This 125-nucleotide RNA from Gemmiger sp. An194 belongs to the Rfam family "FMN riboswitch aptamer (RFN element)". About the family: The RFN element is a highly conserved domain that is found frequently in the 5'-untranslated regions of prokaryotic mRNAs that encode for flavin mononucleotide (FMN) biosynthesis and transport proteins. This element is a metabolite-dependent riboswitch that directly binds FMN in the absence of proteins. In Bacillus subtilis, the riboswitch most likely controls gene expression by causing premature transcription termination within the 5' untranslated region of the ribDEAHT operon and precluding access to the ribosome-binding site of ypaA mRNA.The FMN riboswitch structure, reported in present an FMN-bound six-stem junction, adopts a butterfly-like scaffold, stapled together by opposingly directed but nearly identically folded peripheral domains. Rfam links the family to the GO term FMN binding.

RNA sequence: AAGCAGUUUCAGGGCGGGGUGAAAUUCCCCACCGGCGGUACAGCCCGCGACCACCCGGUGUUUCCGGGUGCUGAUCUGGUGAAAUUCCAGAGCCGACGGUAUAGUCCGGAUGAAAGAAACGGCAG
Dot-bracket structure: ..((.(((((......(((.......))).[[((((((....[[))))...((...............))....(((((.......)))))]])).(((....]]))).......))))).))..
Lineage of the source: Bacteria > Bacillota > Eubacteriales > Oscillospiraceae > Gemmiger.